[Rfam]
Description: Shown here is a 79-nucleotide RNA from Medicago truncatula, a member of the family "MIR5269 microRNA precursor family". A search with the family's covariance model found it, with a score of 69 bits.
RNA sequence: UUGAUUUAAAUCAUUGUAAGUUUACAUUUUAAAAAUUGAAUACAUACAAAAUGGUGAGACAUACAUUGAUUUCAUUCAA
Numbered sequence: 001u002u003g004a005u006u007u008a009a010a011u012c013a014u015u016g017u018a019a020g021u022u023u024a025c026a027u028u029u030u031a032a033a034a035a036u037u038g039a040a041u042a043c044a045u046a047c048a049a050a051a052u053g054g055u056g057a058g059a060c061a062u063a064c065a066u067u068g069a070u071u072u073c074a075u076u077c078a079a
Base pairs, nucleotide, nucleotide: 001079002078003077004076006074008072009071010070011069012068013067015065016064017063018062022057023056024055025053026052027051028050029049030048
Description
Taxonomically the source falls in Medicago (Eukaryota, Streptophytina, Mesangiospermae, Fabales). The base pairs follow the family's consensus structure, which was predicted with RNAalifold.